[Rfam]
Rfam assigns this 140-nucleotide RNA sequence from Devosia chinhatensis to the family "FMN riboswitch aptamer (RFN element)". Gene Ontology term of the family: FMN binding.

RNA sequence: CAUUGUUCUCAGGGCGGGGCGAAAUUCCCCACCGGCGGUAAAGGCAGCAAUGCCAAGCCCGCGAGCGCUCCCAUUGGGAGGUCAGCAGAUCCGGUGCAAAUCCGGGGCCGACGGUAUAGUCCGGAUGAAAGAGAACGGGA
Numbered sequence: 001c002a003u004u005g006u007u008c009u010c011a012g013g014g015c016g017g018g019g020c021g022a023a024a025u026u027c028c029c030c031a032c033c034g035g036c037g038g039u040a041a042a043g044g045c046a047g048c049a050a051u052g053c054c055a056a057g058c059c060c061g062c063g064a065g066c067g068c069u070c071c072c073a074u075u076g077g078g079a080g081g082u083c084a085g086c087a088g089a090u091c092c093g094g095u096g097c098a099a100a101u102c103c104g105g106g107g108c109c110g111a112c113g114g115u116a117u118a119g120u121c122c123g124g125a126u127g128a129a130a131g132a133g134a135a136c137g138g139g140a
Stems, first nucleotide, its partner, number of pairs: 003138008017029003031120002033110002035062004057108002065086002090106005112123003